Notes: The family of this 108-nucleotide RNA sequence from Blautia luti is "Glycine riboswitch aptamer". Lineage of the source: Bacteria > Bacillati > Clostridia > Lachnospiraceae > Blautia. The match comes from Rfam's covariance-model search (52 bits).
Nucleotides: 108
Stems, first nucleotide, its partner, number of pairs: 009100003013096001020042006044088003047084002051082001053080001057075006
Number, partner (000 for none) and nucleotide at each position: 001000u002000a003000a004000a005000a006000a007000a008000a009100c010099u011098c012000a013096g014000g015000a016000g017000a018000g019000u020042c021041u022040c023039u024038u025037c026000a027000a028000a029000u030000c031000a032000a033000a034000a035000g036000g037025g038024a039023a040022g041021a042020g043000c044088g045087c046086c047084g048083a049000a050000g051082g052000u053080g054000u055000a056000c057075g058074c059073a060072g061071c062070a063000c064000a065000c066000a067000a068000a069000a070062u071061g072060c073059u074058g075057u076000a077000a078000a079000u080053c081000u082051c083048u084047c085000a086046g087045g088044c089000a090000a091000a092000a093000g094000g095000a096013u097000g098011g099010a100009g101000g102000a103000a104000a105000g106000a107000g108000u